Description
SAM/SAH riboswitch aptamer: a 48-nucleotide sequence from Gemmobacter megaterium. The organism belongs to Gemmobacter, within Bacteria. A search with the family's covariance model found it, with a score of 61 bits. The literature on the family includes a 2019 paper in Nucleic Acids Res by Weickhmann et al., "The structure of the SAM/SAH-binding riboswitch". Its family is annotated with regulation of gene expression and S-adenosylmethionine metabolic process in the Gene Ontology.
[Rfam]
RNA sequence: UGACCGUCACAACGGCUUCCUGGCGUGGCGGCAUAUUGCAAUGGAGCA
Numbered sequence: 001u002g003a004c005c006g007u008c009a010c011a012a013c014g015g016c017u018u019c020c021u022g023g024c025g026u027g028g029c030g031g032c033a034u035a036u037u038g039c040a041a042u043g044g045a046g047c048a
Stems, first nucleotide, its partner, number of pairs: 004031007013022002015047003019044002